[Rfam]
RNA sequence: GUGUGAGUGAAGAAAAAUGAUGGGAUACCCUCUGAUAUAAAAUCUGAUUUCUCAUCCAGCUAUCGUCUGACACAC
Numbered sequence: 001g002u003g004u005g006a007g008u009g010a011a012g013a014a015a016a017a018u019g020a021u022g023g024g025a026u027a028c029c030c031u032c033u034g035a036u037a038u039a040a041a042a043u044c045u046g047a048u049u050u051c052u053c054a055u056c057c058a059g060c061u062a063u064c065g066u067c068u069g070a071c072a073c074a075c
Stems, first nucleotide, its partner, number of pairs: 001075005

Small nucleolar RNA R12: a 75-nucleotide RNA sequence from Taxus chinensis.
It is annotated as a C/D-box small nucleolar RNA.
A reference for the family is Chen et al. (2003), "The high diversity of snoRNAs in plants: identification and comparative study of 120 snoRNA genes from Oryza sativa", Nucleic Acids Res.
It scores 43 bits against the family's covariance model.
The source organism's lineage runs through Eukaryota, Pinopsida, Conifers II, Cupressales and Taxus.
The base pairs follow the family's consensus structure, which was predicted with PFOLD.
Rfam's curators write: snoR12 is a C/D box small nucleolar RNA, which acts as a methylation guide for 25S ribosomal RNA in plants. snoR12 has been alternatively named snoZ44 in Arabidopsis and snoZ131 in rice.
Rfam links the family to the GO terms RNA processing and nucleolus.